[Rfam]
RNA sequence: AUAUGCACUGAGUGGCCAGAUUAUUAUGAUCUCUGAAUGCAUAAUAAUCUGGCCUCUCAGUGUAACU
Numbered sequence: 001a002u003a004u005g006c007a008c009u010g011a012g013u014g015g016c017c018a019g020a021u022u023a024u025u026a027u028g029a030u031c032u033c034u035g036a037a038u039g040c041a042u043a044a045u046a047a048u049c050u051g052g053c054c055u056c057u058c059a060g061u062g063u064a065a066c067u
Base pairs, nucleotide, nucleotide: 004064005063006062007061008060009059010058011057012056014054015053016052017051019049020048021047022046023045024044025043026042027041028040
Rfam assigns this 67-nucleotide sequence from Pipistrellus kuhlii to the family "mir-9256 microRNA precursor family".
Gene Ontology terms of the family: miRNA-mediated post-transcriptional gene silencing and RISC complex.
The source organism's lineage runs through Eukaryota, Craniata, Euteleostomi, Boreoeutheria and Pipistrellus.
The family's consensus secondary structure was predicted with RNAalifold.